[Rfam]
RNA sequence: UGCCGAAGUUUUCCUCGGCAGCUAACUGCCGCCGGUUUCAUAAUUCGGCAGUUAACUGCCGCGGAGCUU
Numbered sequence: 001u002g003c004c005g006a007a008g009u010u011u012u013c014c015u016c017g018g019c020a021g022c023u024a025a026c027u028g029c030c031g032c033c034g035g036u037u038u039c040a041u042a043a044u045u046c047g048g049c050a051g052u053u054a055a056c057u058g059c060c061g062c063g064g065a066g067c068u069u
Stems, first nucleotide, its partner, number of pairs: 012065002016061006023054007

The family of this 69-nucleotide RNA sequence from Medicago truncatula is "MIR2629 microRNA precursor family". The organism belongs to Medicago, within Eukaryota. It scores 69 bits against the family's covariance model.